RNA sequence: UACUAACAAACCCUAUUUCCACCUCCACGUGGUGAUUGCUGGGAGUUCUUUCUUCAUGAAAAGCUGCUGACGGAGAAGG
Number, nucleotide and partner (000 for none) at each position: 001u000002a000003c000004u000005a000006a000007c000008a000009a000010a000011c000012c079013c078014u077015a000016u075017u074018u073019c072020c000021a033022c032023c031024u000025c000026c000027a000028c000029g000030u000031g023032g022033u021034g000035a000036u000037u000038g000039c000040u000041g000042g000043g000044a000045g065046u000047u063048c000049u061050u060051u059052c000053u058054u000055c000056a000057u000058g053059a051060a050061a049062a000063g047064c000065u045066g000067c000068u000069g000070a000071c000072g019073g018074a017075g016076a000077a014078g013079g012